About this RNA: A member of the RNA family "mir-4872 microRNA precursor family" from Branchiostoma lanceolatum, 78 nucleotides long. The organism belongs to Branchiostoma, within Eukaryota. A search with the family's covariance model found it, with a score of 59 bits.
RNA sequence: UCACAUGCGGUGCCGGGGUAUUAAGACUCUGAGUGUAUUCUCUAGCAUCAGAGUCUUAUUCCCCUGGUUCUCUAUGGA
Numbered sequence: 001u002c003a004c005a006u007g008c009g010g011u012g013c014c015g016g017g018g019u020a021u022u023a024a025g026a027c028u029c030u031g032a033g034u035g036u037a038u039u040c041u042c043u044a045g046c047a048u049c050a051g052a053g054u055c056u057u058a059u060u061c062c063c064c065u066g067g068u069u070c071u072c073u074a075u076g077g078a
Base pairs, nucleotide, nucleotide: 001078002077004076005075006074007073009071010070012068013067014066015065016064017063018061020059021058023057024056025055026054027053028052029051030050031049032048033046034045